[Rfam]
RNA sequence: UCCCGUCGCACGCCCGGGUUAUGGCGUGCAAACCUCCCUGUUGAACUGACCCGGGCCUUGUGCCCGGGUUUUUUU
Numbered sequence: 001u002c003c004c005g006u007c008g009c010a011c012g013c014c015c016g017g018g019u020u021a022u023g024g025c026g027u028g029c030a031a032a033c034c035u036c037c038c039u040g041u042u043g044a045a046c047u048g049a050c051c052c053g054g055g056c057c058u059u060g061u062g063c064c065c066g067g068g069u070u071u072u073u074u075u
Base pairs, nucleotide, nucleotide: 008029009028010027011026012025013024014023049069050068051067052066053065054064055063056062
Notes:
A member of the RNA family "Singlet oxygen resistance RNA X" from Oceaniovalibus sp. ACAM 378, 75 nucleotides long. Lineage of the source: Bacteria > Pseudomonadati > Pseudomonadota > Alphaproteobacteria > Oceaniovalibus. A search with the family's covariance model found it, with a score of 79 bits. A reference for the family is Berghoff et al. (2009), "Photooxidative stress-induced and abundant small RNAs in Rhodobacter sphaeroides", Mol Microbiol. SorX (RSs2461)like SorY is a singlet oxygen induced sRNA that counteracts oxidative stress by targeting mRNA for a transporter in Rhodobacter.